[Rfam]
RNA sequence: UGACUCUGGUUUCUCUUCAUAACGCACAAGUCUUUCGCCUUUUACUAAAGACUUCCGUGGAGAGGAACGCCAACGAGUUUAAGCUAUUUUUGGUAGGUUUUGGCCGUAAGGCUG
Number, nucleotide and partner (000 for none) at each position: 001u000002g000003a078004c077005u076006c075007u000008g000009g068010u067011u066012u065013c064014u063015c062016u061017u060018c059019a058020u000021a000022a000023c000024g000025c000026a000027c000028a054029a053030g052031u051032c050033u049034u048035u047036c000037g000038c000039c000040u000041u000042u000043u000044a000045c000046u000047a035048a034049a033050g032051a031052c030053u029054u028055c000056c000057g000058u019059g018060g017061a016062g015063a014064g013065g012066a011067a010068c009069g000070c000071c000072a000073a000074c000075g006076a005077g004078u003079u000080u000081a000082a000083g000084c000085u000086a000087u000088u000089u000090u000091u000092g000093g000094u114095a000096g113097g112098u111099u110100u109101u108102g000103g000104c000105c000106g000107u000108a101109a100110g099111g098112c097113u096114g094
Source information: Shown here is a 114-nucleotide sequence from Lates calcarifer, a member of the family "U5 spliceosomal RNA". Rfam describes the family as follows. U5 RNA is a component of both types of known spliceosome. The precise function of this molecule is unknown, though it is known that the 5' loop is required for splice site selection and p220 binding, and that both the 3' stem-loop and the Sm site are important for Sm protein binding and cap methylation. It is annotated as a spliceosomal small nuclear RNA. It scores 89 bits against the family's covariance model.